A member of the RNA family "mir-230 microRNA precursor family" from Caenorhabditis remanei, 82 nucleotides long. It is one of the family's seed sequences. Gene Ontology terms of the family: RISC complex and miRNA-mediated post-transcriptional gene silencing. The literature on the family includes a 2003 paper in Genes Dev by Lim et al., "The microRNAs of Caenorhabditis elegans".

RNA sequence: UGUACCGAUACUUGGUCGACAAUCUAAUAUUAUCGGUUCUGCCAGAAGAUAGUAUUAGUUGUGCGACCAGGAGACGGUAUUU
Numbered sequence: 001u002g003u004a005c006c007g008a009u010a011c012u013u014g015g016u017c018g019a020c021a022a023u024c025u026a027a028u029a030u031u032a033u034c035g036g037u038u039c040u041g042c043c044a045g046a047a048g049a050u051a052g053u054a055u056u057a058g059u060u061g062u063g064c065g066a067c068c069a070g071g072a073g074a075c076g077g078u079a080u081u082u
Stems, first nucleotide, its partner, number of pairs: 002080006009073001011071008019062004024058011